The family of this 126-nucleotide RNA sequence from Brassica carinata is "MIR9563 microRNA precursor family". The family's consensus secondary structure was predicted with RNAalifold. Rfam links the family to the GO terms RISC complex and miRNA-mediated post-transcriptional gene silencing. The match comes from Rfam's covariance-model search (106 bits).
[Rfam]
RNA sequence: GAAAUAUAAUAACCUGUCUCUUAACUUUUAACUAAAAAAGUUAAGAAUCGGCUCUUAAAACUCUUACUUAAGAACCGGUUCUUAACUUUUUUUAGUUAAAAGUUAAGAGAAAAAUUCUUAUAUUUC
Numbered sequence: 001g002a003a004a005u006a007u008a009a010u011a012a013c014c015u016g017u018c019u020c021u022u023a024a025c026u027u028u029u030a031a032c033u034a035a036a037a038a039a040g041u042u043a044a045g046a047a048u049c050g051g052c053u054c055u056u057a058a059a060a061c062u063c064u065u066a067c068u069u070a071a072g073a074a075c076c077g078g079u080u081c082u083u084a085a086c087u088u089u090u091u092u093u094a095g096u097u098a099a100a101a102g103u104u105a106a107g108a109g110a111a112a113a114a115u116u117c118u119u120a121u122a123u124u125u126c
Stems, first nucleotide, its partner, number of pairs: 001126009011116002015112001017110023041085007
Dot-bracket structure: (((((((((.((..(.(((((((((((((((((((((((.(((((((...............................)))))))..))))))))))))))))))))))).)..)).)))))))))